[Rfam]
RNA sequence: GGAGUUGGCCAGGCAAUCGCCGCGUCCGCGAGGACGGGGAGGAAAGUCCGGGCUCCGCAGAGCAGGAUGCCGGCUAACGGCCGGGCGCCGCGAGGCGACGGAAAGUGGAACAGAGAGCUGAACCGCCGAUGGCCGGACUUGUCGACCGCGAGGUCGACAAAGUCUUUUCCCGGGGCUUGCCCCGGAAAAACCCGCAAGGGCGGAUCAGGCAAGGGUGAAAAGGUGUACCGGGAGGCGCAAGCCGGCCCGGACGGGCGGGGCAACCCGCUCGCGGUAAGAGCGCACCGCGGACGUGGCGACACGGACGGCAGGCUAAACCCCAUCCGGAGCAAGACCAAAUAGGGGGACGCCAACGUGGCUCGCGUUGUCCCCGGGUAGGUUGCUUGAGCCUGUCGGCAACGGCAGGCCUAGAGGAAUGAUUGUCCAACGACAGAACCCGGCUUAUCGGCCGACUCCCACC
Numbered sequence: 001g002g003a004g005u006u007g008g009c010c011a012g013g014c015a016a017u018c019g020c021c022g023c024g025u026c027c028g029c030g031a032g033g034a035c036g037g038g039g040a041g042g043a044a045a046g047u048c049c050g051g052g053c054u055c056c057g058c059a060g061a062g063c064a065g066g067a068u069g070c071c072g073g074c075u076a077a078c079g080g081c082c083g084g085g086c087g088c089c090g091c092g093a094g095g096c097g098a099c100g101g102a103a104a105g106u107g108g109a110a111c112a113g114a115g116a117g118c119u120g121a122a123c124c125g126c127c128g129a130u131g132g133c134c135g136g137a138c139u140u141g142u143c144g145a146c147c148g149c150g151a152g153g154u155c156g157a158c159a160a161a162g163u164c165u166u167u168u169c170c171c172g173g174g175g176c177u178u179g180c181c182c183c184g185g186a187a188a189a190a191c192c193c194g195c196a197a198g199g200g201c202g203g204a205u206c207a208g209g210c211a212a213g214g215g216u217g218a219a220a221a222g223g224u225g226u227a228c229c230g231g232g233a234g235g236c237g238c239a240a241g242c243c244g245g246c247c248c249g250g251a252c253g254g255g256c257g258g259g260g261c262a263a264c265c266c267g268c269u270c271g272c273g274g275u276a277a278g279a280g281c282g283c284a285c286c287g288c289g290g291a292c293g294u295g296g297c298g299a300c301a302c303g304g305a306c307g308g309c310a311g312g313c314u315a316a317a318c319c320c321c322a323u324c325c326g327g328a329g330c331a332a333g334a335c336c337a338a339a340u341a342g343g344g345g346g347a348c349g350c351c352a353a354c355g356u357g358g359c360u361c362g363c364g365u366u367g368u369c370c371c372c373g374g375g376u377a378g379g380u381u382g383c384u385u386g387a388g389c390c391u392g393u394c395g396g397c398a399a400c401g402g403c404a405g406g407c408c409u410a411g412a413g414g415a416a417u418g419a420u421u422g423u424c425c426a427a428c429g430a431c432a433g434a435a436c437c438c439g440g441c442u443u444a445u446c447g448g449c450c451g452a453c454u455c456c457c458a459c460c
Base pairs, nucleotide, nucleotide: 001456002455003454004453005452006451007450008449009448010447011445012424013423014422015421016420017419018418020039021038023036024035025034026033027032044443045442046441048440049439050438051437052436053329054328055327056326060361061360062359063358065325066324067323068322069321070084071083072082073081074080085099086097087096088095089094100320101319105318106317107314108313123214124213125210126209127208130207131206132205134203222286223285224284225283226282287309288307289306292303293302294301295300333381334380335379336378343372344371345370346369347368348367352366353365354364355363356362388407389406390405391404392403393402394401395400
Rfam assigns this 460-nucleotide RNA from Chromobacterium violaceum to the family "Bacterial RNase P class A".
A search with the family's covariance model found it, with a score of 253 bits.
NCBI's taxonomy places the organism under Bacteria, Pseudomonadati, Pseudomonadota, Neisseriales, Chromobacterium violaceum.
The base pairs follow the family's consensus structure, which is taken from published work.